[Rfam]
RNA sequence: AAUUCUGAGUAAUCGCGCCUAGCUUUUGCUGGGUGAGGAAAGUCCACUCUCGCACAAGCUGAGAUGCUUGUAGUGUUCGUGAUCGGUGAAAAAAUAAACCGGUGAAUCACUUUUAUUAGUGACUACGGCGGAGAAACAAGCUAAGGUUCUGCUAUGCUUUAAUACUCCUGAAAAGUGCCACAGUGACGAAACAUUGGAGAAAUCCAAUCGAAUGGAACGCGGUAAACCCCUCGAGCGGAGAACUCAAAUUUUCGGUAGAGGAGCUUCACGCACGGAAAAUGAACCAAGCGUGGGGACCGCAUCAUAUUUAUGAUGCGAUAGAUAGAUGAUUACUGCUCAUAUGAUUUGACCUGACAUUUCAUGUGAGUACGAAACGUGGCUUAUAGGA
Numbered sequence: 001a002a003u004u005c006u007g008a009g010u011a012a013u014c015g016c017g018c019c020u021a022g023c024u025u026u027u028g029c030u031g032g033g034u035g036a037g038g039a040a041a042g043u044c045c046a047c048u049c050u051c052g053c054a055c056a057a058g059c060u061g062a063g064a065u066g067c068u069u070g071u072a073g074u075g076u077u078c079g080u081g082a083u084c085g086g087u088g089a090a091a092a093a094a095u096a097a098a099c100c101g102g103u104g105a106a107u108c109a110c111u112u113u114u115a116u117u118a119g120u121g122a123c124u125a126c127g128g129c130g131g132a133g134a135a136a137c138a139a140g141c142u143a144a145g146g147u148u149c150u151g152c153u154a155u156g157c158u159u160u161a162a163u164a165c166u167c168c169u170g171a172a173a174a175g176u177g178c179c180a181c182a183g184u185g186a187c188g189a190a191a192c193a194u195u196g197g198a199g200a201a202a203u204c205c206a207a208u209c210g211a212a213u214g215g216a217a218c219g220c221g222g223u224a225a226a227c228c229c230c231u232c233g234a235g236c237g238g239a240g241a242a243c244u245c246a247a248a249u250u251u252u253c254g255g256u257a258g259a260g261g262a263g264c265u266u267c268a269c270g271c272a273c274g275g276a277a278a279a280u281g282a283a284c285c286a287a288g289c290g291u292g293g294g295g296a297c298c299g300c301a302u303c304a305u306a307u308u309u310a311u312g313a314u315g316c317g318a319u320a321g322a323u324a325g326a327u328g329a330u331u332a333c334u335g336c337u338c339a340u341a342u343g344a345u346u347u348g349a350c351c352u353g354a355c356a357u358u359u360c361a362u363g364u365g366a367g368u369a370c371g372a373a374a375c376g377u378g379g380c381u382u383a384u385a386g387g388a
Stems, first nucleotide, its partner, number of pairs: 004388003007384001008334007016035006040382003044379004050238004054071006077234003081230001082103006104126001105124001107122004127229002130168004138159004145153003175227002177223003192210001193208006243260003264295007296319001298317008336367009

The family of this 388-nucleotide sequence from Acetilactobacillus jinshanensis is "Bacterial RNase P class B". The family's RNA type in Rfam is ribozyme. Lineage of the source: Bacteria > Bacillota > Bacilli > Lactobacillales > Acetilactobacillus. Clan: RNaseP clan. The match comes from Rfam's covariance-model search (289 bits).